Rfam assigns this 75-nucleotide RNA sequence from Parvimonas sp. oral taxon 393 to the family "dfrA-dnaX RNA". The family's consensus secondary structure is taken from published work. The sequence is in the family's curated seed alignment.
Nucleotides: 075
Stems, first nucleotide, its partner, number of pairs: 030070008
Number, partner (000 for none) and nucleotide at each position: 001000a002000u003000g004000c005000c006000u007000u008000a009000u010000g011000a012000u013000a014000a015000a016000c017000c018000u019000a020000u021000u022000a023000c024000u025000a026000u027000u028000u029000c030070a031069u032068c033067a034066u035065a036064a037063c038000u039000a040000c041000c042000u043000a044000a045000a046000a047000a048000a049000a050000u051000a052000a053000u054000c055000a056000a057000a058000a059000a060000g061000g062000a063037g064036u065035u066034a067033u068032g069031a070030u071000a072000u073000a074000a075000u